[Rfam]
RNA sequence: AGCGCUGCGUCCCUUGGGUCGGCGGCCAGCACUUGGUGCCGCGUGAAUGUGUGGCCCCUGUCCCGUAGUGCGAGAGUC
Numbered sequence: 001a002g003c004g005c006u007g008c009g010u011c012c013c014u015u016g017g018g019u020c021g022g023c024g025g026c027c028a029g030c031a032c033u034u035g036g037u038g039c040c041g042c043g044u045g046a047a048u049g050u051g052u053g054g055c056c057c058c059u060g061u062c063c064c065g066u067a068g069u070g071c072g073a074g075a076g077u078c
Base pairs, nucleotide, nucleotide: 002071003070004069005068006067007066008065009064016057017056018055019054020053
The record is a 78-nucleotide RNA from Trypanosoma congolense, which matches "Trypanosomatid snoRNA TB11Cs4H3" in Rfam. The source organism's lineage runs through Eukaryota, Kinetoplastea, Metakinetoplastina, Trypanosomatida and Trypanosoma congolense. A reference for the family is Liang et al. (2005), "A genome-wide analysis of C/D and H/ACA-like small nucleolar RNAs in Trypanosoma brucei reveals a trypanosome-specific pattern of rRNA modification", RNA. Rfam 15.1 lists 134 matches to the family in 10 species. Gene Ontology terms of the family: nucleolus and RNA processing. It scores 77 bits against the family's covariance model.